[Rfam]
RNA sequence: GGCCCGAUGGUUUAGGGGUAUAAUACUCGCUUAGGGCGUUAAUUGGUAACAAUACAAACUCUAAGUCGUUUGCGAGUGGUCCCGGGUUCGAUUCCCGGUUGGGCCC
Numbered sequence: 001g002g003c004c005c006g007a008u009g010g011u012u013u014a015g016g017g018g019u020a021u022a023a024u025a026c027u028c029g030c031u032u033a034g035g036g037c038g039u040u041a042a043u044u045g046g047u048a049a050c051a052a053u054a055c056a057a058a059c060u061c062u063a064a065g066u067c068g069u070u071u072g073c074g075a076g077u078g079g080u081c082c083c084g085g086g087u088u089c090g091a092u093u094c095c096c097g098g099u100u101g102g103g104c105c106c
Stems, first nucleotide, its partner, number of pairs: 001105007010024003026076005082098005
Overview
This 106-nucleotide RNA sequence from Sugiyamaella lignohabitans belongs to the Rfam family "tRNA". The family has 954 seed sequences and 5,335,975 matches in Rfam 15.1. Rfam classes the family as a transfer RNA.